Shown here is a 102-nucleotide RNA from Halalkalibacter suaedae, a member of the family "Guanidine-I riboswitch aptamer". The source organism's lineage runs through Bacteria, Bacillati, Bacillota, Caryophanales and Halalkalibacter. Rfam describes the family as follows. This family represents a conserved RNA structure found upstream of the ykkC and yxkD genes in Bacillus subtilis and related genes in other bacteria. The function of this family is unclear although it has been suggested that it may function to switch on efflux pumps and detoxification systems in response to harmful environmental molecules.
RNA sequence: GAAAAAGCUUUCUAGGGUUCCGUUGAUGAUUGAUCAAGCCUGGUCCGAGAGAGAGCGGUACAGAUAUUCUGUAUUACACGGAAGGAUAAAAGCCUGGGAGAC
Number, nucleotide and partner (000 for none) at each position: 001g000002a000003a000004a000005a000006a000007g056008c055009u054010u053011u052012c051013u000014a000015g046016g045017g000018u000019u000020c043021c042022g040023u037024u036025g035026a034027u033028g000029a000030u000031u000032g000033a027034u026035c025036a024037a023038g000039c000040c022041u000042g021043g020044u000045c016046c015047g000048a000049g000050a000051g012052a011053g010054a009055g008056c007057g075058g074059u073060a072061c071062a070063g069064a068065u000066a000067u000068u064069c063070u062071g061072u060073a059074u058075u057076a000077c097078a000079c100080g000081g000082a000083a095084g094085g093086a000087u000088a000089a000090a000091a000092g000093c085094c084095u083096g000097g077098g000099a000100g079101a000102c000